The family of this 270-nucleotide RNA from Apostichopus japonicus is "RNase MRP". The family has 66 seed sequences and 3,510 matches in Rfam 15.1.
RNA sequence: AGCAACUUGCAAUACUUGACACGGAGUAACAUGCUGAGAUCCUUUGUAUCUAUAACUUACUUUGGGGAAAGUCCCUGGAAUCUGAGUAGAAAGUACUGAUGGAUGUUAAAAUCCCUUCUAGCCUACGUUAAUGUUCCAUUUUAAGGCUAUGAAGCUUCGGCUGAGUAGUGGGGCAUGGUGUAGGUGACACUAUCCUAUCACAGAUAUUCAAGUAGUGGAAAACAUGUAAAUGUGUUCUGCUCACUCAAUAGGGCUUAAUCUGCAAGUAGC
Dot-bracket structure: .((.(((((((..((((((..((((((.........((((.(...).)))).......))))))....[[[.[[[[........((((.....))))((.((...........)).)).(.(..((((((....(((........((......((....))...))....)))..)))))).).)......................)))))).((((((..............)))))).........]]]]]]]....))))))).))

Lineage of the source: Eukaryota > Eumetazoa > Bilateria > Aspidochirotacea > Apostichopus.
Pairs were carried over by alignment from the consensus structure, which is taken from published work.
By type it is a ribozyme.
A search with the family's covariance model found it, with a score of 87 bits.